[Rfam]
RNA sequence: UCAUCCGAGGAGCGCUGCGACGGGUUUUCGGCCUGCCAGGCUCGGAUUUCGAAGAACGGCGCUCAUCGAUC
Numbered sequence: 001u002c003a004u005c006c007g008a009g010g011a012g013c014g015c016u017g018c019g020a021c022g023g024g025u026u027u028u029c030g031g032c033c034u035g036c037c038a039g040g041c042u043c044g045g046a047u048u049u050c051g052a053a054g055a056a057c058g059g060c061g062c063u064c065a066u067c068g069a070u071c
Stems, first nucleotide, its partner, number of pairs: 003047006021035006
RNA: SAH (S-adenosyl-L-homocysteine) riboswitch aptamer
Organism: Roseateles saccharophilus